The record is a 134-nucleotide sequence from Thermodesulfitimonas autotrophica, which matches "SAM riboswitch aptamer (S box leader)" in Rfam.

RNA sequence: CUCUUAUCAAGAGUGGCGGAGGGACUGGCCCUAUGAAGCCCGGCAACCAGUCGGGGGGUGGCCACAAAGGCUGCGGCCCGGCCAGGUGCCAAUUCCAGCAGAAGAGCUCACCCAUCUCUUCUGACAGAUAAGGG
Number, nucleotide and partner (000 for none) at each position: 001c134002u133003c132004u131005u130006a129007u128008c127009a000010a000011g000012a000013g041014u000015g040016g039017c038018g000019g000020a000021g031022g030023g029024a000025c098026u097027g096028g095029c023030c022031c021032u000033a000034u000035g000036a000037a000038g017039c016040c015041c013042g090043g089044c088045a087046a000047c086048c085049a000050g082051u081052c080053g079054g078055g077056g000057g000058g000059u000060g000061g000062c000063c000064a000065c000066a000067a000068a000069g000070g000071c000072u000073g000074c000075g000076g000077c055078c054079c053080g052081g051082c050083c000084a000085g048086g047087u045088g044089c043090c042091a000092a000093u000094u126095c028096c027097a026098g025099c123100a122101g121102a120103a119104g118105a117106g116107c000108u000109c000110a000111c000112c000113c000114a000115u000116c106117u105118c104119u103120u102121c101122u100123g099124a000125c000126a094127g008128a007129u006130a005131a004132g003133g002134g001

It scores 84 bits against the family's covariance model.
Lineage of the source: Bacteria > Bacillati > Thermoanaerobacterales > Thermoanaerobacteraceae > Thermodesulfitimonas.